[Rfam]
RNA: S4-Flavobacteria ribosomal protein leader
Organism: Nonlabens sp. MB-3u-79
RNA sequence: GAUCAUUGAAGGAUAUAGACCUGAAUUCAUGAUAC
Numbered sequence: 001g002a003u004c005a006u007u008g009a010a011g012g013a014u015a016u017a018g019a020c021c022u023g024a025a026u027u028c029a030u031g032a033u034a035c
Stems, first nucleotide, its partner, number of pairs: 001035001002033005008028001010022003